[Rfam]
RNA: purD RNA motif
Organism: Helicobacter monodelphidis
RNA sequence: AUAGAUUUCAUUCUUGUGUGUCGGUGUUUCUGCUUGAGUCUUUAACGAUUAGGAUUUACCGCCUAAUUGAGUGCUUGUGCUUAUGUUAUUGGCUUUUUGUGGCCACGAUCAUUUGGUAACGUUCAUCUGGGU
Numbered sequence: 001a002u003a004g005a006u007u008u009c010a011u012u013c014u015u016g017u018g019u020g021u022c023g024g025u026g027u028u029u030c031u032g033c034u035u036g037a038g039u040c041u042u043u044a045a046c047g048a049u050u051a052g053g054a055u056u057u058a059c060c061g062c063c064u065a066a067u068u069g070a071g072u073g074c075u076u077g078u079g080c081u082u083a084u085g086u087u088a089u090u091g092g093c094u095u096u097u098u099g100u101g102g103c104c105a106c107g108a109u110c111a112u113u114u115g116g117u118a119a120c121g122u123u124c125a126u127c128u129g130g131g132u
Base pairs, nucleotide, nucleotide: 003075004074009073010072011071012070013069022061023060024059025058026057029054030053031052038049039048040047090105091104092103093102094101